[Rfam]
A member of the RNA family "SAM riboswitch aptamer (S box leader)" from Brevibacillus fluminis, 106 nucleotides long. The family's consensus secondary structure is taken from published work.
RNA sequence: CUCUUAUCUAGAGUGGCGGAGGGACUGGCCCGAUGAAGCCCGGCAACCCCGAUUUUCGGAGAGGUGCUAAUUCCAGCAAACGUUUUGCGCGUUUGGUAGAUAAGAG
Numbered sequence: 001c002u003c004u005u006a007u008c009u010a011g012a013g014u015g016g017c018g019g020a021g022g023g024a025c026u027g028g029c030c031c032g033a034u035g036a037a038g039c040c041c042g043g044c045a046a047c048c049c050c051g052a053u054u055u056u057c058g059g060a061g062a063g064g065u066g067c068u069a070a071u072u073c074c075a076g077c078a079a080a081c082g083u084u085u086u087g088c089g090c091g092u093u094u095g096g097u098a099g100a101u102a103a104g105a106g
Base pairs, nucleotide, nucleotide: 001106002105003104004103005102006101007100008099013041015040016039017038021031022030023029025076026075027074028073042068043067044066045065047064048063049059050058051057052056072098077095078094079093080092081091082090
Dot-bracket structure: ((((((((....(.(((...(((.[[[[)))......))))((((.((((((...))))...))))))...(]]]]((((((.......))))))..)))))))))